[Rfam]
RNA sequence: CCCUUCUUGUGUCAAGCGCUGUGCUAAAACCAUGGGGACGGGGGCUGAGCCUCAGUCCCUGUGGUAAUGCUAGCAGAGCACUCGCAGGAAGGAGAGAAACCUGCACUGGAUCGAACCUGCUCAGGGUGGACCUCUUUCUUAAUGUCCAGUGUCCUGGGUCUUGAGAUUUGGUGCAACAGUU
Numbered sequence: 001c002c003c004u005u006c007u008u009g010u011g012u013c014a015a016g017c018g019c020u021g022u023g024c025u026a027a028a029a030c031c032a033u034g035g036g037g038a039c040g041g042g043g044g045c046u047g048a049g050c051c052u053c054a055g056u057c058c059c060u061g062u063g064g065u066a067a068u069g070c071u072a073g074c075a076g077a078g079c080a081c082u083c084g085c086a087g088g089a090a091g092g093a094g095a096g097a098a099a100c101c102u103g104c105a106c107u108g109g110a111u112c113g114a115a116c117c118u119g120c121u122c123a124g125g126g127u128g129g130a131c132c133u134c135u136u137u138c139u140u141a142a143u144g145u146c147c148a149g150u151g152u153c154c155u156g157g158g159u160c161u162u163g164a165g166a167u168u169u170g171g172u173g174c175a176a177c178a179g180u181u
Base pairs, nucleotide, nucleotide: 019078020077022075023074024073025072026071029068032065035059036058038056039055041053042052043051044050045049102175103174104173105172106171107170108169109168110167123152125150127148128147129146130145
Description
Small nucleolar RNA SNORA81: a 181-nucleotide sequence from Turnix velox. Gene Ontology terms of the family: RNA processing and nucleolus. The family's RNA type in Rfam is H/ACA-box small nucleolar RNA. Pairs were carried over by alignment from the consensus structure, which was predicted with WAR.